[Rfam]
RNA: mir-4872 microRNA precursor family
Organism: Branchiostoma belcheri
RNA sequence: UCAUAUAGAGUGCCGGGGCCCGAUGAAACUCUGAGUUUUGUCAGCGUCAGAGUUUCAUCGCCCCGGCUCUCUAUGGG
Number, nucleotide and partner (000 for none) at each position: 001u077002c076003a000004u075005a074006u073007a072008g000009a070010g069011u000012g067013c066014c065015g064016g063017g062018g000019c000020c000021c060022g059023a058024u057025g056026a055027a054028a053029c052030u051031c050032u049033g048034a047035g045036u044037u000038u000039u000040g000041u000042c000043a000044g036045c035046g000047u034048c033049a032050g031051a030052g029053u028054u027055u026056c025057a024058u023059c022060g021061c000062c017063c016064c015065g014066g013067c012068u000069c010070u009071c000072u007073a006074u005075g004076g002077g001